SAM riboswitch aptamer (S box leader): a 117-nucleotide RNA from Pseudoxanthomonas sp. Root65.
RNA sequence: CCACCAUCGAGACCGGCAGAGGGACAGGCCCGAAGAAGCCGGGGCAGCCAGCGACGCGCAAGCGCCGUGGUGGUGCCAAAUCCUGCGGGGACCUCAGCGUCUGCCGGAAGAUGGUUC
Numbered sequence: 001c002c003a004c005c006a007u008c009g010a011g012a013c014c015g016g017c018a019g020a021g022g023g024a025c026a027g028g029c030c031c032g033a034a035g036a037a038g039c040c041g042g043g044g045c046a047g048c049c050a051g052c053g054a055c056g057c058g059c060a061a062g063c064g065c066c067g068u069g070g071u072g073g074u075g076c077c078a079a080a081u082c083c084u085g086c087g088g089g090g091a092c093c094u095c096a097g098c099g100u101c102u103g104c105c106g107g108a109a110g111a112u113g114g115u116u117c
Base pairs, nucleotide, nucleotide: 003115004114005113006112007111008110013042014041015040016039017038021031022030023029025085026084027083028082043077044076045075046074048073049072051068052067053066081109086106087105088104090102
Dot-bracket structure: ..((((((....(((((...(((.[[[[)))......)))))((((.((.(((............)))...))))))...(]]]](((.(...........).)))..)))))))..
The source organism's lineage runs through Bacteria, Gammaproteobacteria, Lysobacterales, Lysobacteraceae and Pseudoxanthomonas. A search with the family's covariance model found it, with a score of 65 bits.